[Rfam]
RNA sequence: AAGCCAGUAUACUUCAUCUGCUUAACUGAACGUGUUUUGCAGAAGGGAUGUGUGAAUAUGCUGGCAAUAGCAUAGCCUGGGUACGAGCCUUGAAGACUCUGUAGUCAUUAAGGUCCCUGAAAUUGGCAACAUCU
Dot-bracket structure: ..(((((.........(((((.................))))).................))))).........(((.........(((((((.(((......))).)))))))..........))).......
Numbered sequence: 001a002a003g004c005c006a007g008u009a010u011a012c013u014u015c016a017u018c019u020g021c022u023u024a025a026c027u028g029a030a031c032g033u034g035u036u037u038u039g040c041a042g043a044a045g046g047g048a049u050g051u052g053u054g055a056a057u058a059u060g061c062u063g064g065c066a067a068u069a070g071c072a073u074a075g076c077c078u079g080g081g082u083a084c085g086a087g088c089c090u091u092g093a094a095g096a097c098u099c100u101g102u103a104g105u106c107a108u109u110a111a112g113g114u115c116c117c118u119g120a121a122a123u124u125g126g127c128a129a130c131a132u133c134u
Stems, first nucleotide, its partner, number of pairs: 003065005017043005075127003087114007095106003